[Rfam]
RNA sequence: GAAGCACGCCAGACCGCCGCUGGUGCGCGCUUGAGAAGGCCGCACUGGAGGAACGUCCGGACUGCACAGGGCAGCGUAGCAGCUAACGGCUGUCCACCGUGAGGUGAGGAUCAGAGCAACAGAGACGAGUCCGAGCGGGUGCCGCCACGGAGUGUUCUGUGAGGCGCCAGCGCAAGCUGGCGAGAGGACAGCGAAAGCUGUCCGAACCCGGCGCAAGCCGGGUCCGAACAGCCACCCCGAGCGGGCAACGCCCGCUCGGGGUGAAACGGGCAAUCUCUACGCGCAGCAACACCAAGUAGGCACACGUUGACGGGGCCCCCGGAGUGUGCGGGUAGGUGGCAUCGAGCCGGGUGGGCGACCCCCGGCCCAGAGUAAUGGCGGUCACGCCCGGGCAACCGGGUGCACAGAAUCCGGCUUAUCGGCGCGCUUCACAC
Number, nucleotide and partner (000 for none) at each position: 001g430002a429003a428004g427005c426006a000007c424008g423009c422010c421011a419012g383013a382014c381015c380016g379017c378018c377019g000020c048021u047022g046023g045024u044025g043026c042027g041028c000029g000030c000031u000032u000033g000034a000035g000036a000037a000038g000039g000040c000041c027042g026043c025044a024045c023046u022047g021048g020049a000050g000051g000052a000053a417054c000055g415056u000057c414058c413059g412060g411061a410062c286063u285064g284065c283066a000067c000068a000069g318070g317071g316072c315073a000074g282075c281076g280077u279078a278079g093080c092081a091082g090083c089084u000085a000086a000087c000088g000089g083090c082091u081092g080093u079094c108095c106096a105097c104098c103099g000100u000101g000102a000103g098104g097105u096106g095107a000108g094109g277110a276111u000112c000113a000114g275115a274116g271117c270118a000119a000120c000121a000122g000123a000124g000125a000126c000127g000128a000129g000130u000131c260132c259133g257134a256135g255136c254137g253138g252139g251140u250141g249142c000143c000144g000145c000146c000147a000148c000149g000150g000151a000152g000153u000154g000155u000156u000157c000158u000159g000160u000161g000162a000163g000164g000165c000166g000167c000168c000169a000170g000171c000172g000173c000174a000175a000176g000177c000178u000179g000180g000181c000182g000183a000184g000185a000186g000187g000188a000189c000190a000191g000192c000193g000194a000195a000196a000197g000198c000199u000200g000201u000202c000203c000204g000205a000206a000207c000208c000209c000210g000211g000212c000213g000214c000215a000216a000217g000218c000219c000220g000221g000222g000223u000224c000225c000226g000227a000228a000229c000230a000231g000232c000233c000234a000235c000236c000237c000238c000239g000240a000241g000242c000243g000244g000245g000246c000247a000248a000249c141250g140251c139252c138253c137254g136255c135256u134257c133258g000259g132260g131261g000262u000263g000264a000265a000266a000267c000268g000269g000270g117271c116272a000273a000274u115275c114276u110277c109278u078279a077280c076281g075282c074283g065284c064285a063286g062287c000288a000289a000290c338291a337292c336293c335294a000295a000296g000297u000298a000299g000300g329301c328302a327303c326304a325305c324306g000307u000308u000309g000310a000311c321312g320313g319314g000315g072316c071317c070318c069319c313320c312321g311322g000323a000324g305325u304326g303327u302328g301329c300330g000331g000332g000333u000334a000335g293336g292337u291338g290339g000340c000341a000342u000343c000344g000345a000346g366347c365348c364349g363350g362351g361352u000353g360354g359355g000356c000357g000358a000359c354360c353361c351362c350363c349364g348365g347366c346367c000368c000369a000370g000371a000372g000373u000374a000375a000376u000377g018378g017379c016380g015381g014382u013383c012384a000385c000386g000387c000388c000389c000390g000391g000392g000393c000394a000395a000396c000397c000398g000399g000400g000401u000402g000403c000404a000405c000406a000407g000408a000409a000410u061411c060412c059413g058414g057415c055416u000417u053418a000419u011420c000421g010422g009423c008424g007425c000426g005427c004428u003429u002430c001431a000432c000433a000434c000

About this RNA: The family of this 434-nucleotide RNA from Alicycliphilus denitrificans is "Bacterial RNase P class A". The family's consensus secondary structure is taken from published work. The match comes from Rfam's covariance-model search (183 bits). About the family: Ribonuclease P (RNase P) is a ubiquitous endoribonuclease, found in archaea, bacteria and eukarya as well as chloroplasts and mitochondria. The family's RNA type in Rfam is ribozyme. Gene Ontology terms of the family: ribonuclease P activity, tRNA processing and dimeric ribonuclease P complex.